[Rfam]
RNA: mir-1759 microRNA precursor family
RNA sequence: GCUGUUGUAGGCUAGGAGGGAGAGAGGUGCUACCUUACGAGCUGCCACCUCUGCCAUCCUGUCCUCUGCAGGAGC
Numbered sequence: 001g002c003u004g005u006u007g008u009a010g011g012c013u014a015g016g017a018g019g020g021a022g023a024g025a026g027g028u029g030c031u032a033c034c035u036u037a038c039g040a041g042c043u044g045c046c047a048c049c050u051c052u053g054c055c056a057u058c059c060u061g062u063c064c065u066c067u068g069c070a071g072g073a074g075c
Stems, first nucleotide, its partner, number of pairs: 001075003005071006011064001014060004019055002023052007031044002034041002